About this RNA:
The record is a 67-nucleotide RNA from Pelecanoides urinatrix, which matches "Small nucleolar RNA SNORD58" in Rfam. Rfam describes the family as follows. snoRNA U58 is found in introns 1, 3 and 6 of the ribosomal protein RPL17 gene in humans. NCBI's taxonomy places the organism under Eukaryota, Deuterostomia, Gnathostomata, Tetrapoda, Pelecanoides. Gene Ontology terms of the family: nucleolus and RNA processing. A reference for the family is Galardi et al. (2002), "Purified box C/D snoRNPs are able to reproduce site-specific 2'-O-methylation of target RNA in vitro", Mol Cell Biol. It is annotated as a C/D-box small nucleolar RNA.

[Rfam]
RNA sequence: UGGCAGUGAUGACUAUCUUAGGACACCUUUGGAACAACCAUGAAAGAAUUUUUUUUCUCUGAGCCAU
Numbered sequence: 001u002g003g004c005a006g007u008g009a010u011g012a013c014u015a016u017c018u019u020a021g022g023a024c025a026c027c028u029u030u031g032g033a034a035c036a037a038c039c040a041u042g043a044a045a046g047a048a049u050u051u052u053u054u055u056u057c058u059c060u061g062a063g064c065c066a067u
Stems, first nucleotide, its partner, number of pairs: 001066004